[Rfam]
RNA: Eukaryotic large subunit ribosomal RNA, nucleotides 1388 to 1827
Organism: Phaeodactylum tricornutum
RNA sequence: GGUAGUAGCAAAUAUUCAAAUGAGAACUUUGAAGACUGAAGUGGAGAAAGGUUCCACGUGAACAGCAAUUGGACGUGGGUUAGUCGAUCCUAAGAGAUAGGAGAAAUCCGUUGCAAGGCGGCUCUUUUUGAGCCCUUCUAUCGAAAGGGAAUCGGGUUAAUAUUCCCGAACCAGGACGUGGAUGUUGAGUGGCAACACAAGCGAAGCCGGGGACAGCUGCGGGGGCCCCGACGAGAGUUUUCUUUUCUUGUUAACAAGCGACACCGACCCCGGAAUCGGAUUGCCCGGAGAUGGGGUUGGCGGCUUGGUAAAGGCGGCCGCUUUUUGGCCGCUUCGGUGCGCCCUCGACGCUCCUUGAAAACCUGGCAGCGUGUUUUAUUCGCACCCCUGGUCGUACUCAUCACCGCAUCAGGUCUCCAAGGUUAGCAGCCUCUAGUCGA
Numbered sequence: 001g002g003u004a005g006u007a008g009c010a011a012a013u014a015u016u017c018a019a020a021u022g023a024g025a026a027c028u029u030u031g032a033a034g035a036c037u038g039a040a041g042u043g044g045a046g047a048a049a050g051g052u053u054c055c056a057c058g059u060g061a062a063c064a065g066c067a068a069u070u071g072g073a074c075g076u077g078g079g080u081u082a083g084u085c086g087a088u089c090c091u092a093a094g095a096g097a098u099a100g101g102a103g104a105a106a107u108c109c110g111u112u113g114c115a116a117g118g119c120g121g122c123u124c125u126u127u128u129u130g131a132g133c134c135c136u137u138c139u140a141u142c143g144a145a146a147g148g149g150a151a152u153c154g155g156g157u158u159a160a161u162a163u164u165c166c167c168g169a170a171c172c173a174g175g176a177c178g179u180g181g182a183u184g185u186u187g188a189g190u191g192g193c194a195a196c197a198c199a200a201g202c203g204a205a206g207c208c209g210g211g212g213a214c215a216g217c218u219g220c221g222g223g224g225g226c227c228c229c230g231a232c233g234a235g236a237g238u239u240u241u242c243u244u245u246u247c248u249u250g251u252u253a254a255c256a257a258g259c260g261a262c263a264c265c266g267a268c269c270c271c272g273g274a275a276u277c278g279g280a281u282u283g284c285c286c287g288g289a290g291a292u293g294g295g296g297u298u299g300g301c302g303g304c305u306u307g308g309u310a311a312a313g314g315c316g317g318c319c320g321c322u323u324u325u326u327g328g329c330c331g332c333u334u335c336g337g338u339g340c341g342c343c344c345u346c347g348a349c350g351c352u353c354c355u356u357g358a359a360a361a362c363c364u365g366g367c368a369g370c371g372u373g374u375u376u377u378a379u380u381c382g383c384a385c386c387c388c389u390g391g392u393c394g395u396a397c398u399c400a401u402c403a404c405c406g407c408a409u410c411a412g413g414u415c416u417c418c419a420a421g422g423u424u425a426g427c428a429g430c431c432u433c434u435a436g437u438c439g440a
Stems, first nucleotide, its partner, number of pairs: 015033006034438004043418004049398002054078006063071002085394003089148002094142002096112003100109003120134002152169005172390004178385003182380001189198003206367006215352003220347007228337003231251006255307005267297006276288004314332007404413002420432004